[Rfam]
RNA sequence: AAAAGCUGCUUGCUGAAUCUUUUUUGGCUGUAAAGCCUUAUAUAUAAAGAGCGGGGGACCCAAGGUUGAUGCGGAUAUUUCCGCUAUAGGUGAAUUCGUAAUAGAAGGGGCUGUUUAGUUUCCCAUAGUCCUAACCUGAAAGCUAACCUCGUAAGCUAUUGAAGUGGAAACG
Numbered sequence: 001a002a003a004a005g006c007u008g009c010u011u012g013c014u015g016a017a018u019c020u021u022u023u024u025u026g027g028c029u030g031u032a033a034a035g036c037c038u039u040a041u042a043u044a045u046a047a048a049g050a051g052c053g054g055g056g057g058a059c060c061c062a063a064g065g066u067u068g069a070u071g072c073g074g075a076u077a078u079u080u081c082c083g084c085u086a087u088a089g090g091u092g093a094a095u096u097c098g099u100a101a102u103a104g105a106a107g108g109g110g111c112u113g114u115u116u117a118g119u120u121u122c123c124c125a126u127a128g129u130c131c132u133a134a135c136c137u138g139a140a141a142g143c144u145a146a147c148c149u150c151g152u153a154a155g156c157u158a159u160u161g162a163a164g165u166g167g168a169a170a171c172g
Base pairs, nucleotide, nucleotide: 012156013155014154018050019049020048021047022046051152052151053150054149055148056147088137089136090135096105097104108131109130110129111128112127113126114125